[Rfam]
RNA: serC leader
Organism: Lichenifustis flavocetrariae
RNA sequence: CGGUGGGACACCUCUCCCCAACGAGAGGCGCUCAUCUGUAAGGAUGGCCAGU
Numbered sequence: 001c002g003g004u005g006g007g008a009c010a011c012c013u014c015u016c017c018c019c020a021a022c023g024a025g026a027g028g029c030g031c032u033c034a035u036c037u038g039u040a041a042g043g044a045u046g047g048c049c050a051g052u
Stems, first nucleotide, its partner, number of pairs: 011028006032047006